[Rfam]
RNA sequence: GAUGGGGUAUCCGAAAACCAUUGAAAGAGUAGGAA
Numbered sequence: 001g002a003u004g005g006g007g008u009a010u011c012c013g014a015a016a017a018c019c020a021u022u023g024a025a026a027g028a029g030u031a032g033g034a035a
Stems, first nucleotide, its partner, number of pairs: 002021004010034003
Rfam assigns this 35-nucleotide RNA to the family "DUF805b RNA".
Pairs were carried over by alignment from the consensus structure, which is taken from published work.
Clan: DUF805 clan.